[Rfam]
RNA sequence: UUGGCGGUGUACCCCCAGAUCGGCUCGUCCUCGACGAGCACCCGCUCGCCGAACUUCUCGCCGUCGGCCAGCACGCCGAUGCUGAGCGGGUCGCCGUAGGUGCCGACGCCGACCUUGUCCACCUUGCCGUGCGCGAUCAGGUACAGGUUGUCGGCGACCGAGCCGAACUCGACGAUCACCUGACCGGGCUGGUACUCCUGCUGGACGAACCGGUCGGCGAUGGCGCUCAGCAGCUCCUCGUCGUCGAUGCCGCCGAGGACCGCGAUCUCGCGCAGCUCCGUCGGGACCACCUGGACCACUGCGCCGGUGUUGGUGAAGGUGAGCCGGCCGUCCCCGAGCCGGUAGGUCAUCCGCCGGUUCACCCGGUAGGUGCCGCCGGCCACCUCGACCCAGGGCAGCUUCCGCAGCAGCCACCGGGAGGAGAUCUCCUGCAUCUGCGGGACGGACUUGGUGGUGUGGGUCAGGUUCCGUGCGGCAGUGGUGCUGAGACUCUGCCGAUACUUCUG
Numbered sequence: 001u002u003g004g005c006g007g008u009g010u011a012c013c014c015c016c017a018g019a020u021c022g023g024c025u026c027g028u029c030c031u032c033g034a035c036g037a038g039c040a041c042c043c044g045c046u047c048g049c050c051g052a053a054c055u056u057c058u059c060g061c062c063g064u065c066g067g068c069c070a071g072c073a074c075g076c077c078g079a080u081g082c083u084g085a086g087c088g089g090g091u092c093g094c095c096g097u098a099g100g101u102g103c104c105g106a107c108g109c110c111g112a113c114c115u116u117g118u119c120c121a122c123c124u125u126g127c128c129g130u131g132c133g134c135g136a137u138c139a140g141g142u143a144c145a146g147g148u149u150g151u152c153g154g155c156g157a158c159c160g161a162g163c164c165g166a167a168c169u170c171g172a173c174g175a176u177c178a179c180c181u182g183a184c185c186g187g188g189c190u191g192g193u194a195c196u197c198c199u200g201c202u203g204g205a206c207g208a209a210c211c212g213g214u215c216g217g218c219g220a221u222g223g224c225g226c227u228c229a230g231c232a233g234c235u236c237c238u239c240g241u242c243g244u245c246g247a248u249g250c251c252g253c254c255g256a257g258g259a260c261c262g263c264g265a266u267c268u269c270g271c272g273c274a275g276c277u278c279c280g281u282c283g284g285g286a287c288c289a290c291c292u293g294g295a296c297c298a299c300u301g302c303g304c305c306g307g308u309g310u311u312g313g314u315g316a317a318g319g320u321g322a323g324c325c326g327g328c329c330g331u332c333c334c335c336g337a338g339c340c341g342g343u344a345g346g347u348c349a350u351c352c353g354c355c356g357g358u359u360c361a362c363c364c365g366g367u368a369g370g371u372g373c374c375g376c377c378g379g380c381c382a383c384c385u386c387g388a389c390c391c392a393g394g395g396c397a398g399c400u401u402c403c404g405c406a407g408c409a410g411c412c413a414c415c416g417g418g419a420g421g422a423g424a425u426c427u428c429c430u431g432c433a434u435c436u437g438c439g440g441g442a443c444g445g446a447c448u449u450g451g452u453g454g455u456g457u458g459g460g461u462c463a464g465g466u467u468c469c470g471u472g473c474g475g476c477a478g479u480g481g482u483g484c485u486g487a488g489a490c491u492c493u494g495c496c497g498a499u500a501c502u503u504c505u506g
Stems, first nucleotide, its partner, number of pairs: 006390003011385001018328001022324001025322005031316002035313001037311006047303003051299001054233002057230002060227001062225003065111004075103001077102002080099001083096002120219001122217002127212001129210002134204001136202001139199003145196002151192002156189001158187003162177001235295003240290002243287003250283001252281002255278001257277002260275001262271003329342001351379003355375003360372004391431005397425001399423003403418001405416001407415001437476002440473001442471005447465006477505002481499002484497001486495001
Source information: The family of this 506-nucleotide RNA sequence from Actinoplanes italicus is "Saccharopolyspora sRNA 350". A reference for the family is Liu et al. (2013), "Prediction and characterization of small non-coding RNAs related to secondary metabolites in Saccharopolyspora erythraea", PLoS One. The family's RNA type in Rfam is antisense RNA.